S-element: a 68-nucleotide sequence from Rhizobium sp. BG4.
From the family's description: This family represents a group of S-elements from p42d and related plasmids. The S-element has multiple functions and is believed to act as a negative regulator of repC transcription, be required for efficient replication and act as a translational enhancer of repC.
Gene Ontology terms of the family: mRNA transcription and translation regulator activity.
[Rfam]
RNA sequence: AGUCAAGAGUCUUGGCGCCAUUUUGGUGAGCGGAUUUCUUUUGCCUCAACGUAGGUGAAAGAAAAAUG
Numbered sequence: 001a002g003u004c005a006a007g008a009g010u011c012u013u014g015g016c017g018c019c020a021u022u023u024u025g026g027u028g029a030g031c032g033g034a035u036u037u038c039u040u041u042u043g044c045c046u047c048a049a050c051g052u053a054g055g056u057g058a059a060a061g062a063a064a065a066a067u068g
Stems, first nucleotide, its partner, number of pairs: 010062002012059002016057004021053001023051001028046001030044005

It is annotated as a cis-regulatory element.